[Rfam]
Overview
The record is a 76-nucleotide sequence from Dinothrombium tinctorium, which matches "HDV ribozyme from F. prausnitzii" in Rfam. Its family is annotated with catalytic activity in the Gene Ontology. For this family Rfam cites "Widespread occurrence of self-cleaving ribozymes" (Webb et al., Science, 2009).

RNA sequence: GGAGAGUGAACACUUGGCCACCUCCCCGUGGUACUCUCUGGGCAACAGGUUGUCAAAACCUGGCUAAGACCAAGUG
Numbered sequence: 001g002g003a004g005a006g007u008g009a010a011c012a013c014u015u016g017g018c019c020a021c022c023u024c025c026c027c028g029u030g031g032u033a034c035u036c037u038c039u040g041g042g043c044a045a046c047a048g049g050u051u052g053u054c055a056a057a058a059c060c061u062g063g064c065u066a067a068g069a070c071c072a073a074g075u076g
Stems, first nucleotide, its partner, number of pairs: 001039007020032003046062005

The base pairs follow the family's consensus structure, which is taken from published work. A search with the family's covariance model found it, with a score of 46 bits.